[Rfam]
RNA sequence: ACAGUAGGUUGUCUUAUCGCCGCGUAUUUAUACGAGGAGGAAAGUCCGAGCACCAUAGAACAGCAUAGCGGAUAACAUCCGUCGCCUUAAACUAGUUUAAGGUAGGACAAGUGCAACAGAAAGCAAGUACAGUUCGGCUGUAGUGAAACCAGGUAAACUCUAUGCGGUACAAUGCCAUGUAUAUUGGAGACCUUUUAAUAGGUAAGAGUUGUUCGCUCAAUUCCAAGGGGUAGGCAGAUUGAGAUUGUUGGUAACAGCAAUUCUAGAUAAAUGAUAAGAAGCUUGAACUUGUUUCAAGUUACAGAACUCGGCUUAUAAACCUACUUUUAAU
Numbered sequence: 001a002c003a004g005u006a007g008g009u010u011g012u013c014u015u016a017u018c019g020c021c022g023c024g025u026a027u028u029u030a031u032a033c034g035a036g037g038a039g040g041a042a043a044g045u046c047c048g049a050g051c052a053c054c055a056u057a058g059a060a061c062a063g064c065a066u067a068g069c070g071g072a073u074a075a076c077a078u079c080c081g082u083c084g085c086c087u088u089a090a091a092c093u094a095g096u097u098u099a100a101g102g103u104a105g106g107a108c109a110a111g112u113g114c115a116a117c118a119g120a121a122a123g124c125a126a127g128u129a130c131a132g133u134u135c136g137g138c139u140g141u142a143g144u145g146a147a148a149c150c151a152g153g154u155a156a157a158c159u160c161u162a163u164g165c166g167g168u169a170c171a172a173u174g175c176c177a178u179g180u181a182u183a184u185u186g187g188a189g190a191c192c193u194u195u196u197a198a199u200a201g202g203u204a205a206g207a208g209u210u211g212u213u214c215g216c217u218c219a220a221u222u223c224c225a226a227g228g229g230g231u232a233g234g235c236a237g238a239u240u241g242a243g244a245u246u247g248u249u250g251g252u253a254a255c256a257g258c259a260a261u262u263c264u265a266g267a268u269a270a271a272u273g274a275u276a277a278g279a280a281g282c283u284u285g286a287a288c289u290u291g292u293u294u295c296a297a298g299u300u301a302c303a304g305a306a307c308u309c310g311g312c313u314u315a316u317a318a319a320c321c322u323a324c325u326u327u328u329a330a331u
Stems, first nucleotide, its partner, number of pairs: 001327001003325008011316001012279007020037002023034004042314003046311005052168003058214004063165005068082005083105001084103008106160002111158002113154002128142006173236004184226005206218004243262008
RNA: Bacterial RNase P class A
Organism: Wenyingzhuangia fucanilytica